[Rfam]
RNA sequence: AGCUUAAAUGCGCAUCAUCUUCAUACCUCCCUGUUGGACUUCGGCCGAGCUUAGUGCUCGGCCUUUUUU
Numbered sequence: 001a002g003c004u005u006a007a008a009u010g011c012g013c014a015u016c017a018u019c020u021u022c023a024u025a026c027c028u029c030c031c032u033g034u035u036g037g038a039c040u041u042c043g044g045c046c047g048a049g050c051u052u053a054g055u056g057c058u059c060g061g062c063c064u065u066u067u068u069u
Stems, first nucleotide, its partner, number of pairs: 005023001007021002010019001043063008
The family of this 69-nucleotide sequence from Poseidonocella pacifica is "Singlet oxygen resistance RNA X". Rfam describes the family as follows. SorX (RSs2461)like SorY is a singlet oxygen induced sRNA that counteracts oxidative stress by targeting mRNA for a transporter in Rhodobacter. Pairs were carried over by alignment from the consensus structure. Rfam 15.1 lists 528 matches to the family in 356 species.